[Rfam]
The family of this 92-nucleotide RNA sequence from Acetivibrio straminisolvens is "c-di-GMP-I riboswitch aptamer". Taxonomically the source falls in Acetivibrio straminisolvens (Bacteria, Bacillota, Acetivibrionales, Acetivibrio). About the family: GEMM was predicted in a large-scale screen for bacterial structured RNA regulatory elements. Genes associated with GEMM are involved in a diverse array of functions, including chemotaxis regulation, signal transduction, secretion and chitin. Clan: c-di-GMP_I riboswitch clan.

Nucleotides: 092
Stems, first nucleotide, its partner, number of pairs: 012037002017032006040086004046081002048077003055071006
Number, partner (000 for none) and nucleotide at each position: 001000u002000u003000a004000u005000g006000a007000a008000a009000c010000a011000g012037g013036c014000a015000a016000a017032a018031u019030u020029a021028c022027c023000g024000a025000a026000a027022g028021g029020u030019a031018a032017u033000g034000a035000c036013g037012c038000a039000a040086a041085g042084c043083c044000a045000a046081g047080g048077g049076u050075c051000u052000a053000a054000a055071g056070u057069a058068c059067u060066g061000u062000a063000a064000a065000u066060c067059g068058g069057u070056a071055c072000a073000a074000u075050g076049a077048u078000a079000g080047c081046c082000g083043g084042g085041u086040u087000g088000c089000c090000a091000u092000u